[Rfam]
RNA: RAGATH-18 RNA
RNA sequence: CCUUGAAGAGCGUUAUGUCAAACGAAAGUAGUCUAGUCUAUAGAUGUAAAUUUAUGGAUAACAAAAUCGGACGCUAUGAAUAAGGAA
Numbered sequence: 001c002c003u004u005g006a007a008g009a010g011c012g013u014u015a016u017g018u019c020a021a022a023c024g025a026a027a028g029u030a031g032u033c034u035a036g037u038c039u040a041u042a043g044a045u046g047u048a049a050a051u052u053u054a055u056g057g058a059u060a061a062c063a064a065a066a067u068c069g070g071a072c073g074c075u076a077u078g079a080a081u082a083a084g085g086a087a
Stems, first nucleotide, its partner, number of pairs: 001085005010074005023069003031062002036059009
Dot-bracket structure: (((((....(((((........(((.....((...(((((((((......))))))))).))....))))))))......)))))..